RNA sequence: GCAGACUCACUCUGUUCUUUGCUGCUUGCUCCAGCCCAGAACUUUUUCUGUCUGCUAAAUAAUUUUGCAGAAUGAAUUUGAUGGACUGGCUUCCUGUGACACCAGUUUUGCGUUUGUUCUGCCACAUUUGU
Numbered sequence: 001g002c003a004g005a006c007u008c009a010c011u012c013u014g015u016u017c018u019u020u021g022c023u024g025c026u027u028g029c030u031c032c033a034g035c036c037c038a039g040a041a042c043u044u045u046u047u048c049u050g051u052c053u054g055c056u057a058a059a060u061a062a063u064u065u066u067g068c069a070g071a072a073u074g075a076a077u078u079u080g081a082u083g084g085a086c087u088g089g090c091u092u093c094c095u096g097u098g099a100c101a102c103c104a105g106u107u108u109u110g111c112g113u114u115u116g117u118u119c120u121g122c123c124a125c126a127u128u129u130g131u
Stems, first nucleotide, its partner, number of pairs: 001055006014042005022034003067122007075114003079110002084107005
RNA: Small nucleolar RNA SNORA77
Organism: Neogobius melanostomus